The family of this 131-nucleotide RNA sequence from Sylvia atricapilla is "Small nucleolar RNA SNORA44". The base pairs follow the family's consensus structure, which was predicted with PFOLD. The source organism's lineage runs through Eukaryota, Saurischia, Neoaves, Sylviinae and Sylvia.
RNA sequence: CUGCAUGUUAAUCCAAGAGCUGUAGCUCGACAAAGUAGCUGCAGGUCUCCAACAACAUGCCAGAGCAAUGGGAAGGUCUUUGACUGCUGGGCCUCUUCUGGCCGUGACUGUCACUCACCCCUCCAAUACAU
Number, nucleotide and partner (000 for none) at each position: 001c000002u000003g000004c000005a000006u000007g000008u000009u000010a000011a000012u000013c044014c000015a000016a000017g000018a040019g039020c038021u037022g036023u035024a000025g000026c000027u000028c000029g000030a000031c000032a000033a000034a000035g023036u022037a021038g020039c019040u018041g000042c000043a000044g013045g000046u000047c000048u000049c000050c000051a000052a000053c000054a000055a000056c000057a000058u000059g000060c000061c000062a000063g000064a000065g000066c000067a000068a000069u000070g000071g124072g123073a122074a000075g120076g119077u000078c000079u000080u000081u000082g000083a000084c000085u000086g111087c110088u000089g000090g103091g102092c101093c000094u000095c000096u000097u000098c000099u000100g000101g092102c091103c090104g000105u000106g000107a000108c000109u000110g087111u086112c000113a000114c000115u000116c000117a000118c000119c076120c075121c000122u073123c072124c071125a000126a000127u000128a000129c000130a000131u000

The family is grouped with related families in Rfam's "SNORA44 clan". Its family is annotated with RNA processing and nucleolus in the Gene Ontology.